[Rfam]
RNA sequence: UGAGGGAGUGUGCGUAAGAACUCCACUCCAAGAACUGCUCUGGUGUACUUCCCCGAUAUCAGAGUCGGACUUGGAGCGGGGCUCUAUGCAUACUUAGCUCAGCU
Numbered sequence: 001u002g003a004g005g006g007a008g009u010g011u012g013c014g015u016a017a018g019a020a021c022u023c024c025a026c027u028c029c030a031a032g033a034a035c036u037g038c039u040c041u042g043g044u045g046u047a048c049u050u051c052c053c054c055g056a057u058a059u060c061a062g063a064g065u066c067g068g069a070c071u072u073g074g075a076g077c078g079g080g081g082c083u084c085u086a087u088g089c090a091u092a093c094u095u096a097g098c099u100c101a102g103c104u
Base pairs, nucleotide, nucleotide: 010091011090012089013088014087015086016085018084019083021081022080023079024078026076027075028074029073030072031071032070035067037065038064039063040062041061042060043059044058045057046056
Source information:
mraW RNA: a 104-nucleotide RNA from Corynebacterium kutscheri. The organism belongs to Corynebacterium, within Bacteria.